Background:
Shown here is a 64-nucleotide RNA sequence from Schistosoma mansoni, a member of the family "mir-8/mir-141/mir-200 microRNA precursor family". A search with the family's covariance model found it, with a score of 48 bits. Pairs were carried over by alignment from the consensus structure, which was predicted with RNAalifold. The family has 164 seed sequences and 2,669 matches in Rfam 15.1.
[Rfam]
RNA sequence: UGUGACAUCUUACUAACAGUAUUUGACAAACUACUUUCUAAUACUGUUAGGUAAAGAUGCCAGC
Numbered sequence: 001u002g003u004g005a006c007a008u009c010u011u012a013c014u015a016a017c018a019g020u021a022u023u024u025g026a027c028a029a030a031c032u033a034c035u036u037u038c039u040a041a042u043a044c045u046g047u048u049a050g051g052u053a054a055a056g057a058u059g060c061c062a063g064c
Base pairs, nucleotide, nucleotide: 003062004061006059007058008057009056010054011053012052013051014050016047017046018045019044020043021042022041023040025038026037